The record is a 78-nucleotide RNA, which matches "L4-Archaeoglobi ribosomal protein leades" in Rfam. Rfam classes the family as a cis-regulatory leader. The sequence is in the family's curated seed alignment. The base pairs follow the family's consensus structure, which is taken from published work.
RNA sequence: CUGAUAAGCGCACGGGUGGACGUGGUCUCUACACGAGCCCGCAUGUGCCGCAGGGCGGUACAUAUGCGCGAGACUCAG
Numbered sequence: 001c002u003g004a005u006a007a008g009c010g011c012a013c014g015g016g017u018g019g020a021c022g023u024g025g026u027c028u029c030u031a032c033a034c035g036a037g038c039c040c041g042c043a044u045g046u047g048c049c050g051c052a053g054g055g056c057g058g059u060a061c062a063u064a065u066g067c068g069c070g071a072g073a074c075u076c077a078g
Stems, first nucleotide, its partner, number of pairs: 001078004008069004013041004021035004043063009